The family of this 32-nucleotide sequence from Piprites chloris is "Iron response element II". By type it is a cis-regulatory element. Rfam 15.1 lists 5,197 matches to the family in 722 species. Lineage of the source: Eukaryota > Opisthokonta > Gnathostomata > Sarcopterygii > Piprites. From the family's description: IRE, TFRC, SLC40A1, SDHB, SLC11A2, CDC42BPA, ACO2, ALAS2_H.SAPIENS, CDC14A, EPAS1, ALAS2, qoxD, Hao1, NDUFS1, transferrin, Aconitate. For this family Rfam cites "A cytosolic protein binds to structural elements within the iron regulatory region of the transferrin receptor mRNA" (Koeller et al., Proc Natl Acad Sci U S A, 1989). Its family is annotated with response to iron ion in the Gene Ontology.

RNA sequence: UCGUUUUCAGCUACAGUGUUAGGCCAAAAUGG
Numbered sequence: 001u002c003g004u005u006u007u008c009a010g011c012u013a014c015a016g017u018g019u020u021a022g023g024c025c026a027a028a029a030u031g032g
Stems, first nucleotide, its partner, number of pairs: 001032007010024002012021002014018001